[Rfam]
RNA sequence: GGAUUGAGAUGAUUUCAAUGUGAAAGGUCUCGUUCAUCGUAAUUGGCUCUUACAAGCCUUGACGACCAUAUACCCAUAUUCCGAGUCC
Numbered sequence: 001g002g003a004u005u006g007a008g009a010u011g012a013u014u015u016c017a018a019u020g021u022g023a024a025a026g027g028u029c030u031c032g033u034u035c036a037u038c039g040u041a042a043u044u045g046g047c048u049c050u051u052a053c054a055a056g057c058c059u060u061g062a063c064g065a066c067c068a069u070a071u072a073c074c075c076a077u078a079u080u081c082c083g084a085g086u087c088c
Base pairs, nucleotide, nucleotide: 001088002087003086004085050055

The family of this 88-nucleotide sequence from Salix koriyanagi is "Small nucleolar RNA Z43". The family has 7 seed sequences and 859 matches in Rfam 15.1. Rfam links the family to the GO terms RNA processing and nucleolus. Taxonomically the source falls in Salix (Eukaryota, Viridiplantae, Streptophyta, Malpighiales).